c-di-AMP riboswitch aptamer (ydaO/yuaA leader): a 143-nucleotide sequence from Paenibacillus albidus. Rfam links the family to the GO terms regulation of gene expression and cyclic-di-AMP binding. It scores 73 bits against the family's covariance model.
[Rfam]
RNA sequence: UCAAUAAUAUUGCCGAGUUCUCUAAUCAGUAGAGAAACGGGGGAACCAACUUUGGGUGAAUUGACCUCCUAUUCCAAGAGGGGUCAUAGGGGACCUUCAACCGAACCCUUAAGCUAACCUCGUAGGCAUUUGGAAGGGGUAUA
Numbered sequence: 001u002c003a004a005u006a007a008u009a010u011u012g013c014c015g016a017g018u019u020c021u022c023u024a025a026u027c028a029g030u031a032g033a034g035a036a037a038c039g040g041g042g043g044a045a046c047c048a049a050c051u052u053u054g055g056g057u058g059a060a061u062u063g064a065c066c067u068c069c070u071a072u073u074c075c076a077a078g079a080g081g082g083g084u085c086a087u088a089g090g091g092g093a094c095c096u097u098c099a100a101c102c103g104a105a106c107c108c109u110u111a112a113g114c115u116a117a118c119c120u121c122g123u124a125g126g127c128a129u130u131u132g133g134a135a136g137g138g139g140u141a142u143a
Base pairs, nucleotide, nucleotide: 011128012127013126014125018036019035020034021033022032023031037123038122039121040120041119042118048052054108055107056106062086063085064084065083066082067081068080089102090101